Shown here is a 98-nucleotide RNA from Clostridium sp. DL-VIII, a member of the family "Guanidine-I riboswitch aptamer".
Rfam 15.1 lists 1,509 matches to the family in 1,281 species.

RNA sequence: CAUAUAGUUUUCUAGGGUUCCACAGUGUUUUACUGGUUUGGUCCAAGAGAAAACGCACAAGAAUAUUGUGUACACGGAAGGAUAAAAGCCUGGGAGAA
Numbered sequence: 001c002a003u004a005u006a007g008u009u010u011u012c013u014a015g016g017g018u019u020c021c022a023c024a025g026u027g028u029u030u031u032a033c034u035g036g037u038u039u040g041g042u043c044c045a046a047g048a049g050a051a052a053a054c055g056c057a058c059a060a061g062a063a064u065a066u067u068g069u070g071u072a073c074a075c076g077g078a079a080g081g082a083u084a085a086a087a088g089c090c091u092g093g094g095a096g097a098a
Base pairs, nucleotide, nucleotide: 007054008053009052010051011050012049015044016043020041021040022038023035024034025033026032027031055071056070057069058068059067060066073093075096079091080090081089
The pairing is the family consensus, mapped onto this sequence.
From the family's description: This family represents a conserved RNA structure found upstream of the ykkC and yxkD genes in Bacillus subtilis and related genes in other bacteria. The function of this family is unclear although it has been suggested that it may function to switch on efflux pumps and detoxification systems in response to harmful environmental molecules.